[Rfam]
RNA sequence: GAAGGAGAAUUCCAAAGGGAUCGCAUUGAUCUCUCUCUCUCUCUCUCUCUCUCCUCCCCCUCUCUCUCACUGGAUCUCUCUCUCUAUCUCUACAUAUAUAAAUUUAUAUUUAUAUCAUCACAGCAUAAUUUCAUUUAUGCUGUACCUGUAAUUCUUGGAGAUCAUGCGAUCCUUUUGGAAUUUUCC
Numbered sequence: 001g002a003a004g005g006a007g008a009a010u011u012c013c014a015a016a017g018g019g020a021u022c023g024c025a026u027u028g029a030u031c032u033c034u035c036u037c038u039c040u041c042u043c044u045c046u047c048u049c050u051c052u053c054c055u056c057c058c059c060c061u062c063u064c065u066c067u068c069a070c071u072g073g074a075u076c077u078c079u080c081u082c083u084c085u086a087u088c089u090c091u092a093c094a095u096a097u098a099u100a101a102a103u104u105u106a107u108a109u110u111u112a113u114a115u116c117a118u119c120a121c122a123g124c125a126u127a128a129u130u131u132c133a134u135u136u137a138u139g140c141u142g143u144a145c146c147u148g149u150a151a152u153u154c155u156u157g158g159a160g161a162u163c164a165u166g167c168g169a170u171c172c173u174u175u176u177g178g179a180a181u182u183u184u185c186c
Stems, first nucleotide, its partner, number of pairs: 004186003008182014023167004028163007
RNA: mir-393 microRNA precursor family